[Rfam]
Notes: A member of the RNA family "SAM riboswitch aptamer (S box leader)" from Caloramator australicus, 104 nucleotides long. Its family is annotated with regulation of gene expression in the Gene Ontology. The base pairs follow the family's consensus structure, which is taken from published work.
RNA sequence: AUCUCAUCAAGAGUGGUGGAGGGACUGGCCCUAUGAAGCCCGGCAACCAGUGGUUUAUCCACAAUGGUGCCAAAUCCUGCGGCGAUAUUGCCGAGAGAUGAGAG
Numbered sequence: 001a002u003c004u005c006a007u008c009a010a011g012a013g014u015g016g017u018g019g020a021g022g023g024a025c026u027g028g029c030c031c032u033a034u035g036a037a038g039c040c041c042g043g044c045a046a047c048c049a050g051u052g053g054u055u056u057a058u059c060c061a062c063a064a065u066g067g068u069g070c071c072a073a074a075u076c077c078u079g080c081g082g083c084g085a086u087a088u089u090g091c092c093g094a095g096a097g098a099u100g101a102g103a104g
Stems, first nucleotide, its partner, number of pairs: 002103007013041001015040003021031003025079001027077002042071004047067002050062003075096001080093005